[Rfam]
A member of the RNA family "Small nucleolar RNA SNORA40" from Alectura lathami, 127 nucleotides long. A reference for the family is Ofengand and Bakin (1997), "Mapping to nucleotide resolution of pseudouridine residues in large subunit ribosomal RNAs from representative eukaryotes, prokaryotes, archaebacteria, mitochondria and chloroplasts", J Mol Biol. From the family's description: The snoRNA ACA 40 belongs to the H/ACA family of snoRNAs and guides the pseudouridylation of 28S rRNA subunit at position U4565. NB This family has a high threshold value to exclude a large number of closely related sequences that do not appear to have conserved H and ACA boxes, and may be pseudogenes. The family's consensus secondary structure was predicted with RNAalifold.
RNA sequence: AGCACUUGUUCAGUUUUUGUCUGGUGCUGUAGACAAAAACCUGGAACCUAGUGCUUAGAAAAAACCCUUCUUUUGCAACCCACAGCUGAUGACUGUAUUGGCUGUGUUACAUACAUGAAGGGACAAU
Numbered sequence: 001a002g003c004a005c006u007u008g009u010u011c012a013g014u015u016u017u018u019g020u021c022u023g024g025u026g027c028u029g030u031a032g033a034c035a036a037a038a039a040c041c042u043g044g045a046a047c048c049u050a051g052u053g054c055u056u057a058g059a060a061a062a063a064a065c066c067c068u069u070c071u072u073u074u075g076c077a078a079c080c081c082a083c084a085g086c087u088g089a090u091g092a093c094u095g096u097a098u099u100g101g102c103u104g105u106g107u108u109a110c111a112u113a114c115a116u117g118a119a120g121g122g123a124c125a126a127u
Base pairs, nucleotide, nucleotide: 001055002054003053004052005051006050008048010045013040014039015038016037017036018035019034020033025031066122067121068120071118072117074115075114081106082105083104084103085102086101087100088099089098090097